The record is a 103-nucleotide RNA sequence from Guptibacillus hwajinpoensis, which matches "Purine riboswitch aptamer" in Rfam. NCBI's taxonomy places the organism under Bacteria, Bacillati, Bacillota, Guptibacillaceae, Guptibacillus.
RNA sequence: AUACAACUUCACAUUUAUCUCUAUAUAAUUUUGGAAAUAGGGUCCAAUAAGUUUCUACCCGGCAACCGUUAAUUGCUGGACUAUAGGGAAGGUACGCAUUGUU
Numbered sequence: 001a002u003a004c005a006a007c008u009u010c011a012c013a014u015u016u017a018u019c020u021c022u023a024u025a026u027a028a029u030u031u032u033g034g035a036a037a038u039a040g041g042g043u044c045c046a047a048u049a050a051g052u053u054u055c056u057a058c059c060c061g062g063c064a065a066c067c068g069u070u071a072a073u074u075g076c077u078g079g080a081c082u083a084u085a086g087g088g089a090a091g092g093u094a095c096g097c098a099u100u101g102u103u
Stems, first nucleotide, its partner, number of pairs: 018089008029049001031047005059079007